Rfam assigns this 128-nucleotide sequence from Castor canadensis to the family "Small nucleolar RNA SNORA69". The family's RNA type in Rfam is H/ACA-box small nucleolar RNA. The organism belongs to Castor, within Eukaryota. It scores 92 bits against the family's covariance model.
[Rfam]
RNA sequence: GUAGCAGGUACAAUUACAGUGCUUUGUUUUGUGGAAGUACUGCCAUUAUCCUGCUGAAAAGUCACACUGAUUGUGUUUGAGUUUUGCUUUUAUGAGGAUAAAAUCAUGACAGUUUGAUGGGGAUAAUU
Number, nucleotide and partner (000 for none) at each position: 001g000002u000003a055004g054005c053006a052007g051008g050009u000010a000011c000012a000013a000014u000015u000016a000017c042018a041019g040020u039021g038022c037023u036024u035025u034026g000027u000028u000029u000030u000031g000032u000033g000034g025035a024036a023037g022038u021039a020040c019041u018042g017043c000044c000045a000046u000047u000048a000049u000050c008051c007052u006053g005054c004055u003056g000057a000058a000059a000060a000061g000062u122063c121064a000065c119066a118067c000068u116069g115070a114071u000072u112073g000074u000075g000076u000077u000078u106079g105080a104081g000082u103083u102084u101085u100086g099087c000088u097089u096090u095091u000092a000093u000094g000095a090096g089097g088098a000099u086100a085101a084102a083103a082104u080105c079106a078107u000108g000109a000110c000111a000112g072113u000114u070115u069116g068117a000118u066119g065120g000121g063122g062123a000124u000125a000126a000127u000128u000